Rfam assigns this 134-nucleotide RNA sequence from Lates calcarifer to the family "U11 spliceosomal RNA". The source organism's lineage runs through Eukaryota, Euteleostomi, Actinopteri, Carangaria and Lates. Gene Ontology terms of the family: mRNA 5'-splice site recognition, pre-mRNA 5'-splice site binding and U11 snRNP. Its Rfam clan is "U1 clan". Pairs were carried over by alignment from the consensus structure, which is taken from published work.

[Rfam]
RNA sequence: AAAAAGGGCUUCUACCGUGAUUGGUACAGGAGGAGUAGUGAUUGCUAUUUCUCGUGCGGAAUCGCCAUCAAGAGAUUUCGGAAGCACAAUUUUUAAAACAGGGGUUGCUAGUGAUCUACUGUCCUGGCGCCCCG
Numbered sequence: 001a002a003a004a005a006g007g008g009c010u011u012c013u014a015c016c017g018u019g020a021u022u023g024g025u026a027c028a029g030g031a032g033g034a035g036u037a038g039u040g041a042u043u044g045c046u047a048u049u050u051c052u053c054g055u056g057c058g059g060a061a062u063c064g065c066c067a068u069c070a071a072g073a074g075a076u077u078u079c080g081g082a083a084g085c086a087c088a089a090u091u092u093u094u095a096a097a098a099c100a101g102g103g104g105u106u107g108c109u110a111g112u113g114a115u116c117u118a119c120u121g122u123c124c125u126g127g128c129g130c131c132c133c134g
Stems, first nucleotide, its partner, number of pairs: 008085005013026005027056002030053009057080007102132004107128005113123003